This 112-nucleotide RNA from Paenibacillus foliorum belongs to the Rfam family "epsC RNA". The base pairs follow the family's consensus structure, which is taken from published work. The family has 30 seed sequences and 450 matches in Rfam 15.1. A search with the family's covariance model found it, with a score of 117 bits.
RNA sequence: UGGUGAUGUCUCCUUACCAUUAUCGAUGGAGGCACUCGAUCAUGCUGUGGGUUGAAAUAAACCUUAGACGCUUGUCGUCGGUAGUGUGGUGUGAGGAAGGGUUAGAUGCCCU
Numbered sequence: 001u002g003g004u005g006a007u008g009u010c011u012c013c014u015u016a017c018c019a020u021u022a023u024c025g026a027u028g029g030a031g032g033c034a035c036u037c038g039a040u041c042a043u044g045c046u047g048u049g050g051g052u053u054g055a056a057a058u059a060a061a062c063c064u065u066a067g068a069c070g071c072u073u074g075u076c077g078u079c080g081g082u083a084g085u086g087u088g089g090u091g092u093g094a095g096g097a098a099g100g101g102u103u104a105g106a107u108g109c110c111c112u
Stems, first nucleotide, its partner, number of pairs: 001019004007034007035095004039090008049064005067079004098112005